RNA sequence: GGGUUCGGGAAUAUUUUUCUCGAAGGGUUUUUCUUAAUGGUCGGGCCGCCAUUU
Numbered sequence: 001g002g003g004u005u006c007g008g009g010a011a012u013a014u015u016u017u018u019c020u021c022g023a024a025g026g027g028u029u030u031u032u033c034u035u036a037a038u039g040g041u042c043g044g045g046c047c048g049c050c051a052u053u054u
Stems, first nucleotide, its partner, number of pairs: 005023007036053006

nhaA-I RNA: a 54-nucleotide RNA.
Acidobacteria, Alphaproteobacteria, Betaproteobacteria and Gammaproteobacteria, Verrucomicrobia, cand. division NC10.
The sequence is in the family's curated seed alignment.
Rfam classes the family as a riboswitch.